Nucleotides: 163
Base pairs, nucleotide, nucleotide: 001163002162003161004160005159006158007157010062011061012060013059016056017055018054019053020052021051022050023049024048025047028044029042030041031040032039033038066121067120068119069118070117071116072115073114076111077110078109082105083104084102085101086100087099088098089097090096091095123155124154125153126152127151128150129149134145135144136143137142
Number, partner (000 for none) and nucleotide at each position: 001163u002162g003161a004160u005159a006158c007157a008000a009000g010062c011061g012060u013059c014000a015000a016056a017055a018054g019053g020052u021051c022050a023049u024048g025047c026000g027000g028044g029042c030041u031040g032039c033038g034000c035000u036000u037000g038033c039032g040031c041030a042029g043000g044028c045000a046000a047025g048024c049023a050022u051021g052020a053019c054018u055017u056016u057000g058000g059013g060012a061011c062010g063000c064000g065000a066121a067120c068119a069118a070117c071116a072115c073114c074000g075000a076111a077110a078109a079000g080000a081000a082105g083104c084102c085101a086100u087099u088098u089097u090096c091095c092000a093000g094000a095091g096090g097089a098088a099087a100086a101085u102084g103000u104083g105082c106000g107000g108000a109078u110077u111076u112000g113000a114073g115072g116071u117070g118069u119068u120067g121066u122000a123155g124154g125153a126152u127151u128150g129149c130000g131000a132000g133000a134145g135144c136143g137142c138000u139000u140000c141000a142137g143136c144135g145134c146000g147000g148000a149129g150128c151127a152126a153125u154124c155123c156000g157007u158006g159005u160004a161003u162002c163001a
Record summary
Clostridiales-1 RNA: a 163-nucleotide RNA from Catenibacillus scindens. The organism belongs to Catenibacillus, within Bacteria. The family's RNA type in Rfam is small RNA. It scores 114 bits against the family's covariance model.